BsrC: an 87-nucleotide sequence from Niallia taxi. Rfam 15.1 lists 572 matches to the family in 553 species. The family's consensus secondary structure was predicted with CMfinder. It scores 89 bits against the family's covariance model.

[Rfam]
RNA sequence: AUUGCCUAAAACAAUGAAAGCCCUACCUCUCUUUCAUCCUUACGGCUCCGAGGCCGUGCCAGUGUGAAUUUAGGUUCUAUCAGUUAG
Number, nucleotide and partner (000 for none) at each position: 001a000002u000003u000004g000005c000006c000007u000008a000009a000010a000011a000012c000013a000014a000015u000016g000017a000018a000019a000020g000021c000022c000023c000024u000025a000026c000027c000028u000029c000030u000031c000032u000033u000034u067035c066036a065037u000038c000039c062040u061041u058042a057043c056044g055045g054046c053047u052048c000049c000050g000051a000052g047053g046054c045055c044056g043057u042058g041059c000060c000061a040062g039063u000064g000065u036066g035067a034068a000069u000070u000071u000072a000073g000074g000075u000076u000077c000078u000079a000080u000081c000082a000083g000084u000085u000086a000087g000